[Rfam]
RNA sequence: UUAAUCCUAUUGCUUAAUCUUAUUAGAGCGGGGGAACCAUAAUGAUAUCUGUUUCUAUCGAUAUCUUGGGGUGAAUCACAUUACUAGUGAAGAGGACUCUCAUCCUCUAACCCGACAGCUAACCUCGUAAGCGUUUUGAGAGAAGGG
Numbered sequence: 001u002u003a004a005u006c007c008u009a010u011u012g013c014u015u016a017a018u019c020u021u022a023u024u025a026g027a028g029c030g031g032g033g034g035a036a037c038c039a040u041a042a043u044g045a046u047a048u049c050u051g052u053u054u055c056u057a058u059c060g061a062u063a064u065c066u067u068g069g070g071g072u073g074a075a076u077c078a079c080a081u082u083a084c085u086a087g088u089g090a091a092g093a094g095g096a097c098u099c100u101c102a103u104c105c106u107c108u109a110a111c112c113c114g115a116c117a118g119c120u121a122a123c124c125u126c127g128u129a130a131g132c133g134u135u136u137u138g139a140g141a142g143a144a145g146g147g
Base pairs, nucleotide, nucleotide: 011133012132013131014130018027019026020025028128029127030126031125032124033123038068039067069113070112071111077089078088079087092107093106094105095104